[Rfam]
RNA: mir-9229 microRNA precursor family
Organism: Myotis lucifugus
RNA sequence: AGACACCCUUAUGGGGCAAGACUUGCUUCAGUGGGGAUUGGUGCUCACUGAGUCUGCCUCCUGAGUGUGUCCCU
Numbered sequence: 001a002g003a004c005a006c007c008c009u010u011a012u013g014g015g016g017c018a019a020g021a022c023u024u025g026c027u028u029c030a031g032u033g034g035g036g037a038u039u040g041g042u043g044c045u046c047a048c049u050g051a052g053u054c055u056g057c058c059u060c061c062u063g064a065g066u067g068u069g070u071c072c073c074u
Stems, first nucleotide, its partner, number of pairs: 002071005008065004013060006020054003028051008036042001